Rfam assigns this 112-nucleotide RNA sequence from Bacillus sp. B-jedd to the family "epsC RNA".
[Rfam]
RNA sequence: AGGUGAUAUCUCCUUACCGUUAACAAUGGAGGUACUCGGUCAUGCUGUGGGUUGGAAGAAACCUUAGACGCCGGUCGUCGAGAGUAUGAUGUGAGGAGGGGUUAAAUGCCCC
Numbered sequence: 001a002g003g004u005g006a007u008a009u010c011u012c013c014u015u016a017c018c019g020u021u022a023a024c025a026a027u028g029g030a031g032g033u034a035c036u037c038g039g040u041c042a043u044g045c046u047g048u049g050g051g052u053u054g055g056a057a058g059a060a061a062c063c064u065u066a067g068a069c070g071c072c073g074g075u076c077g078u079c080g081a082g083a084g085u086a087u088g089a090u091g092u093g094a095g096g097a098g099g100g101g102u103u104a105a106a107u108g109c110c111c112c
Base pairs, nucleotide, nucleotide: 002018003017004016007034008033009032010031011030012029013028035095036094037093038092039090040089041088042087043086044085045084046083049064050063051062052061053060067079068078069077070076098112099111100110101109102108